[Rfam]
RNA: Small nucleolar RNA psi28S-3316
Organism: Drosophila yakuba
RNA sequence: AGCACCGAAAAGCGUUUUCUUGCCAGCCUGAUAAAUGCUCAUGAAAAUCGUAGAUGUGUGCCAUAGCAAUUUUUACAAUAGCAAGUGAUACAGCUUCGAUCCGUUUACAUUGUAAACAUCC
Numbered sequence: 001a002g003c004a005c006c007g008a009a010a011a012g013c014g015u016u017u018u019c020u021u022g023c024c025a026g027c028c029u030g031a032u033a034a035a036u037g038c039u040c041a042u043g044a045a046a047a048u049c050g051u052a053g054a055u056g057u058g059u060g061c062c063a064u065a066g067c068a069a070u071u072u073u074u075a076c077a078a079u080a081g082c083a084a085g086u087g088a089u090a091c092a093g094c095u096u097c098g099a100u101c102c103g104u105u106u107a108c109a110u111u112g113u114a115a116a117c118a119u120c121c
Stems, first nucleotide, its partner, number of pairs: 002061004006056001012051003015047005022038002025036001073115007083106005088100002